Shown here is a 175-nucleotide RNA from Streptomyces phyllanthi, a member of the family "c-di-AMP riboswitch aptamer (ydaO/yuaA leader)". Pairs were carried over by alignment from the consensus structure.

RNA sequence: CUGACCAACUCACUCACGCAGGGCAGGAGCGGGGGACCCAGGUAAGUCGCCGGUCCGCCCGAAGGAACGGCUAGGGGUGAAGCCGCGCACGGUACGCACGACGCGUCGCCGUACACGGCCGGGCACCUCCCCGCCCGAACCCGACAGCUCACCUCGCAGGCGCCGGAGAGGAACA
Numbered sequence: 001c002u003g004a005c006c007a008a009c010u011c012a013c014u015c016a017c018g019c020a021g022g023g024c025a026g027g028a029g030c031g032g033g034g035g036a037c038c039c040a041g042g043u044a045a046g047u048c049g050c051c052g053g054u055c056c057g058c059c060c061g062a063a064g065g066a067a068c069g070g071c072u073a074g075g076g077g078u079g080a081a082g083c084c085g086c087g088c089a090c091g092g093u094a095c096g097c098a099c100g101a102c103g104c105g106u107c108g109c110c111g112u113a114c115a116c117g118g119c120c121g122g123g124c125a126c127c128u129c130c131c132c133g134c135c136c137g138a139a140c141c142c143g144a145c146a147g148c149u150c151a152c153c154u155c156g157c158a159g160g161c162g163c164c165g166g167a168g169a170g171g172a173a174c175a
Base pairs, nucleotide, nucleotide: 005160006159010028011027029157030156031155032154033153034152039074075142076141077140083118084117085116121136122135123134124133